[Rfam]
RNA sequence: ACACUGGAUGGGGGUUCUGCCGCUGUGUCCCAUAGCUGCGCAUCGAAGGAGAGCGACGUCAGAUGUGCAAACGGUGU
Numbered sequence: 001a002c003a004c005u006g007g008a009u010g011g012g013g014g015u016u017c018u019g020c021c022g023c024u025g026u027g028u029c030c031c032a033u034a035g036c037u038g039c040g041c042a043u044c045g046a047a048g049g050a051g052a053g054c055g056a057c058g059u060c061a062g063a064u065g066u067g068c069a070a071a072c073g074g075u076g077u
Stems, first nucleotide, its partner, number of pairs: 001077006009032004037069008
Dot-bracket structure: ((((((..((((................))))....((((((((.................))))))))..))))))
RNA: CyVA-1 RNA
Organism: Coleofasciculus sp. LEGE 07092